Background
The family of this 431-nucleotide part of an RNA from Alexandrium catenella is "Eukaryotic large subunit ribosomal RNA".
[Rfam]
RNA sequence: GGUAGUAGCAAUUAUUCAAAUGAAAACUUUGAAGACUGAAGUGGAGAAGGGUUUCAUGUGAACAGUGCUUGGACAUGGGUUAGCCGGUCAUAAGAGAUAGGUAUGUUUUGCACAUGCAGGCUUUGCUUCGCUCCUUGACAAGGAAUGGGGUUAAUAUCCCCCAGCCAGGACGUGGAUAUUGCAUGGUAACAUAAUGUGGAUUGGUGAUGCAAUAGGAAGCCUUGGUAAGCGUUGUCUUUUCUGUUUAAUUGUUUAUAACCCUGAAAUCAGAUUGCCUGGAGAUAGGGUUGAAUGGCAAGCAAAGCACCUUGUCUUCUGAGGUGUCUGGUGUGCUUUCAAUUGCCCUUGAAAAACCAAAUGAUUGUUUUAUUCUCUCCCCUGGUCGUGCCCAUAUCCGCAUCAGGUCUCCAAGGUUUGUAGCCUCUGGUCUU
Number, nucleotide and partner (000 for none) at each position: 001g000002g000003u000004a000005g000006u000007a000008g000009c000010a000011a000012u000013u000014a000015u033016u032017c031018a030019a029020a028021u000022g000023a000024a000025a000026a000027c000028u020029u019030u018031g017032a016033a015034g429035a428036c427037u426038g000039a000040a000041g000042u000043g409044g408045a407046g406047a000048a000049g389050g388051g000052u000053u000054u078055c077056a076057u075058g074059u073060g000061a000062a000063c071064a070065g000066u000067g000068c000069u000070u064071g063072g000073a059074c058075a057076u056077g055078g054079g000080u000081u000082a000083g000084c000085c385086g384087g383088u000089c142090a000091u000092a000093a000094g136095a135096g000097a000098u110099a000100g109101g108102u000103a000104u000105g000106u000107u000108u101109u100110g098111c000112a000113c000114a000115u000116g129117c000118a127119g000120g000121c000122u000123u000124u000125g000126c000127u118128u000129c116130g000131c000132u000133c000134c000135u095136u094137g000138a000139c000140a000141a000142g089143g000144a000145a000146u163147g162148g161149g160150g159151u000152u000153a000154a000155u000156a000157u000158c000159c150160c149161c148162c147163a146164g000165c000166c381167a380168g379169g378170a000171c000172g376173u000174g374175g373176a371177u000178a000179u000180u000181g000182c000183a192184u191185g190186g000187u000188a000189a000190c185191a184192u183193a000194a000195u000196g000197u000198g000199g000200a000201u357202u356203g355204g354205u353206g000207a000208u000209g343210c342211a341212a340213u000214a000215g337216g336217a335218a334219g333220c332221c000222u328223u327224g326225g245226u000227a000228a242229g241230c000231g000232u000233u000234g000235u000236c000237u000238u000239u000240u000241c229242u228243g000244u000245u225246u000247a000248a000249u298250u297251g296252u295253u294254u000255a000256u000257a000258a288259c287260c286261c285262u284263g283264a000265a000266a000267u279268c278269a277270g276271a000272u000273u000274g000275c000276c270277u269278g268279g267280a000281g000282a000283u263284a262285g261286g260287g259288u258289u000290g000291a000292a000293u000294g253295g252296c251297a250298a249299g000300c000301a000302a000303a000304g000305c323306a322307c321308c320309u319310u318311g317312u000313c000314u000315u000316c000317u311318g310319a309320g308321g307322u306323g305324u000325c000326u224327g223328g222329u000330g000331u000332g220333c219334u218335u217336u216337c215338a000339a000340u212341u211342g210343c209344c000345c000346u000347u000348g000349a000350a000351a000352a000353a205354c204355c203356a202357a201358a000359u000360g000361a000362u000363u000364g000365u000366u000367u000368u000369a000370u000371u176372c000373u175374c174375u000376c172377c000378c169379c168380u167381g166382g000383u087384c086385g085386u000387g000388c050389c049390c000391a000392u000393a000394u000395c404396c403397g000398c000399a000400u000401c000402a000403g396404g395405u000406c046407u045408c044409c043410a000411a423412g422413g421414u420415u000416u000417g000418u000419a000420g414421c413422c412423u411424c000425u000426g037427g036428u035429c034430u000431u000
Rfam links the family to the GO terms structural constituent of ribosome and ribosome.
Lineage of the source: Eukaryota > Sar > Alveolata > Gonyaulacales > Alexandrium.
Rfam's curators put it in the seed alignment.